[Rfam]
RNA sequence: UAACUCUGGUUUCUCUUCAUACCACGAAUAAAUCUUUCGCCUUUUACUAAAGAUUUCCGUGGAGAGGAACAAUUUAAUGAGUCUAUAGACAAUUUUUCUCAACCCUGUUAACUCAGGGUA
Dot-bracket structure: ..((((..(((((((((((..........((((((((...........))))))))...)))))))))))........))))...................((((((......)))))).
Numbered sequence: 001u002a003a004c005u006c007u008g009g010u011u012u013c014u015c016u017u018c019a020u021a022c023c024a025c026g027a028a029u030a031a032a033u034c035u036u037u038c039g040c041c042u043u044u045u046a047c048u049a050a051a052g053a054u055u056u057c058c059g060u061g062g063a064g065a066g067g068a069a070c071a072a073u074u075u076a077a078u079g080a081g082u083c084u085a086u087a088g089a090c091a092a093u094u095u096u097u098c099u100c101a102a103c104c105c106u107g108u109u110a111a112c113u114c115a116g117g118g119u120a
Stems, first nucleotide, its partner, number of pairs: 003082004009070011030056008102119006

A member of the RNA family "U5 spliceosomal RNA" from Mytilus galloprovincialis, 120 nucleotides long. It is annotated as a spliceosomal small nuclear RNA. Pairs were carried over by alignment from the consensus structure, which is taken from published work. From the family's description: U5 RNA is a component of both types of known spliceosome. The precise function of this molecule is unknown, though it is known that the 5' loop is required for splice site selection and p220 binding, and that both the 3' stem-loop and the Sm site are important for Sm protein binding and cap methylation. The source organism's lineage runs through Eukaryota, Protostomia, Spiralia, Pteriomorphia and Mytilus. Rfam links the family to the GO terms spliceosomal tri-snRNP complex assembly and U5 snRNP.